[Rfam]
RNA sequence: GGUUUUAUCAUCCAUGUUUGAGGUAAUUGAAUGUUUCGGCCCAGAGUUUUCCACUGCUGUGGUUCGAAGUGAAAUUUUGGAAAGUUCUGCUUUUUAGUGGGACAGC
Dot-bracket structure: ..(((.((.(((.........))).)).)))..((((.(((...................)))..))))..............(((((((......)))))))...
Numbered sequence: 001g002g003u004u005u006u007a008u009c010a011u012c013c014a015u016g017u018u019u020g021a022g023g024u025a026a027u028u029g030a031a032u033g034u035u036u037c038g039g040c041c042c043a044g045a046g047u048u049u050u051c052c053a054c055u056g057c058u059g060u061g062g063u064u065c066g067a068a069g070u071g072a073a074a075u076u077u078u079g080g081a082a083a084g085u086u087c088u089g090c091u092u093u094u095u096a097g098u099g100g101g102a103c104a105g106c
Stems, first nucleotide, its partner, number of pairs: 003031003007027002010024003034069004039063003084103007

Annotation:
This 106-nucleotide RNA sequence from Cercopithifilaria johnstoni belongs to the Rfam family "SL1 RNA". The family's consensus secondary structure is taken from published work.